Background: The record is a 135-nucleotide RNA sequence from Mycolicibacterium austroafricanum, which matches "Group II catalytic intron D1-D4-4" in Rfam. Rfam's curators write: Group II introns are found in rRNA, tRNA and mRNA of organelles in fungi, plants and protists, and also in mRNA in bacteria.

RNA sequence: UAGCGGGUGGAAGUCCCGUCCCGGUAGGUACCGGAGCGCCGGGUAGCAGGCCCCGGUUCGUCGUGGAGACGCGGCGGGCUGAGCGGGGUGUCGAGAGCCUCUUCGGAGGGAGCAAGUGUGCGGGCCGUAGCGUUA
Numbered sequence: 001u002a003g004c005g006g007g008u009g010g011a012a013g014u015c016c017c018g019u020c021c022c023g024g025u026a027g028g029u030a031c032c033g034g035a036g037c038g039c040c041g042g043g044u045a046g047c048a049g050g051c052c053c054c055g056g057u058u059c060g061u062c063g064u065g066g067a068g069a070c071g072c073g074g075c076g077g078g079c080u081g082a083g084c085g086g087g088g089u090g091u092c093g094a095g096a097g098c099c100u101c102u103u104c105g106g107a108g109g110g111a112g113c114a115a116g117u118g119u120g121c122g123g124g125c126c127g128u129a130g131c132g133u134u135a
Base pairs, nucleotide, nucleotide: 020043021042022041023040024039050089051088052087053086054085055080056079057078058077059076060075064071065070098109099108100107101106112128113127
The base pairs follow the family's consensus structure. NCBI's taxonomy places the organism under Bacteria, Bacillati, Actinomycetota, Actinomycetes, Mycolicibacterium austroafricanum. Rfam's curators put it in the seed alignment.